Notes: A member of the RNA family "ODC internal ribosome entry site (IRES)" from Rousettus aegyptiacus, 129 nucleotides long. The source organism's lineage runs through Eukaryota, Teleostomi, Euteleostomi, Laurasiatheria and Rousettus. A search with the family's covariance model found it, with a score of 64 bits. For this family Rfam cites "Alternative splicing facilitates internal ribosome entry on the ornithine decarboxylase mRNA" (Pyronnet et al., Cell Mol Life Sci, 2005).
Nucleotides: 129
Stems, first nucleotide, its partner, number of pairs: 010076003014071001016069001017067002020064001022062003026059002037052004082127001084125003092117003
Number, partner (000 for none) and nucleotide at each position: 001000a002000u003000u004000u005000c006000c007000a008000c009000u010076g011075c012074c013000g014071u015000a016069c017067u018066g019000u020064g021000a022062g023061u024060a025000c026059a027058c028000g029000g030000c031000u032000u033000c034000a035000g036000c037052a038051g039050g040049a041000c042000u043000u044000a045000g046000a047000a048000u049040u050039u051038c052037u053000g054000g055000a056000g057000a058027g059026u060024u061023g062022u063000c064020u065000u066018u067017g068000c069016g070000a071014a072000a073000a074012g075011g076010c077000u078000a079000u080000c081000c082127u083000a084125u085124c086123u087000u088000g089000a090000a091000a092117u093116u094115c095000c096000a097000u098000c099000u100000c101000u102000u103000a104000u105000u106000u107000u108000u109000c110000c111000u112000u113000a114000a115094g116093a117092a118000u119000a120000u121000c122000c123086a124085g125084a126000a127082a128000c129000c